Iron response element II: a 32-nucleotide sequence from Brachypteracias leptosomus. IRE, TFRC, SLC40A1, SDHB, SLC11A2, CDC42BPA, ACO2, ALAS2_H.SAPIENS, CDC14A, EPAS1, ALAS2, qoxD, Hao1, NDUFS1, transferrin, Aconitate. Its family is annotated with response to iron ion in the Gene Ontology. A search with the family's covariance model found it, with a score of 31 bits. On this family, see Walden et al., FEBS Lett 2012: "Accommodating variety in iron-responsive elements: Crystal structure of transferrin receptor 1 B IRE bound to iron regulatory protein 1". Lineage of the source: Eukaryota > Metazoa > Amniota > Coraciimorphae > Brachypteracias. It is annotated as a cis-regulatory element.
Nucleotides: 032
Base pairs, nucleotide, nucleotide: 001032002031003030004029005028006027007026009025010024012021013020014018
Number, partner (000 for none) and nucleotide at each position: 001032c002031u003030u004029u005028u006027a007026u008000c009025a010024g011000u012021a013020u014018c015000a016000g017000u018014g019000u020013a021012u022000u023000u024010c025009u026007a027006u028005a029004a030003a031002a032001g